[Rfam]
RNA: FMN riboswitch aptamer (RFN element)
RNA sequence: CAACGUUCUCAGGGCGGGGUGUGAUUCCCCACCGGCGGUAAUGAUGCGCUGCAUCUAGCCCGCGAGCGCUUGCCGAACCUCCUUCAACGGGCGGCCGGCAAGGUCAGCAGACCCGGUGCGAUUCCGGGGCCGACGGUACAGUCCGGAUAAAGAGAGAGCGGGA
Dot-bracket structure: ...(((((((......(((.......))).[[((((((...................[[))))..((.......................................))...(((((.......)))))]])).(((....]])))........)))))))...
Numbered sequence: 001c002a003a004c005g006u007u008c009u010c011a012g013g014g015c016g017g018g019g020u021g022u023g024a025u026u027c028c029c030c031a032c033c034g035g036c037g038g039u040a041a042u043g044a045u046g047c048g049c050u051g052c053a054u055c056u057a058g059c060c061c062g063c064g065a066g067c068g069c070u071u072g073c074c075g076a077a078c079c080u081c082c083u084u085c086a087a088c089g090g091g092c093g094g095c096c097g098g099c100a101a102g103g104u105c106a107g108c109a110g111a112c113c114c115g116g117u118g119c120g121a122u123u124c125c126g127g128g129g130c131c132g133a134c135g136g137u138a139c140a141g142u143c144c145g146g147a148u149a150a151a152g153a154g155a156g157a158g159c160g161g162g163a
Stems, first nucleotide, its partner, number of pairs: 004160007017029003031142002033132002035063004058130002066108002112128005134145003